[Rfam]
Record summary: This 131-nucleotide RNA sequence belongs to the Rfam family "LOOT RNA". Rfam's curators put it in the seed alignment.
RNA sequence: UGCCUAAACUCGUUAGUUUUAAAAUUAGCGGGCAUGGCAAAACAAGUCCAGUUAGACAUAAAGAUCCCAUCAUAUUGGGGUGUCUAACUGGCCGUAUCGGGAAACUGAUACGAGAGAAGCUUCGGCUUUUC
Numbered sequence: 001u002g003c004c005u006a007a008a009c010u011c012g013u014u015a016g017u018u019u020u021a022a023a024a025u026u027a028g029c030g031g032g033c034a035u036g037g038c039a040a041a042a043c044a045a046g047u048c049c050a051g052u053u054a055g056a057c058a059u060a061a062a063g064a065u066c067c068c069a070u071c072a073u074a075u076u077g078g079g080g081u082g083u084c085u086a087a088c089u090g091g092c093c094g095u096a097u098c099g100g101g102a103a104a105c106u107g108a109u110a111c112g113a114g115a116g117a118a119g120c121u122u123c124g125g126c127u128u129u130u131c
Stems, first nucleotide, its partner, number of pairs: 001039004009032010048091011065080004093112008114131006